This 102-nucleotide sequence from Conopholis americana belongs to the Rfam family "Plastid-rps12 3UTR RNA". Rfam 15.1 lists 1,710 matches to the family in 1,426 species.
[Rfam]
RNA sequence: GGUUCCCAUUGGUGCAAAUAAAAUAAUCUUAAUUAAAUGUAAGAUGAUAAGCAAUUAUCCGUUGAUAGCAAACGACUAUCUAUUAAGCGGAUAAAAUAUUAU
Numbered sequence: 001g002g003u004u005c006c007c008a009u010u011g012g013u014g015c016a017a018a019u020a021a022a023a024u025a026a027u028c029u030u031a032a033u034u035a036a037a038u039g040u041a042a043g044a045u046g047a048u049a050a051g052c053a054a055u056u057a058u059c060c061g062u063u064g065a066u067a068g069c070a071a072a073c074g075a076c077u078a079u080c081u082a083u084u085a086a087g088c089g090g091a092u093a094a095a096a097u098a099u100u101a102u
Stems, first nucleotide, its partner, number of pairs: 009023002057092004061083002064080005
The source organism's lineage runs through Eukaryota, Viridiplantae, Mesangiospermae, eudicotyledons and Conopholis.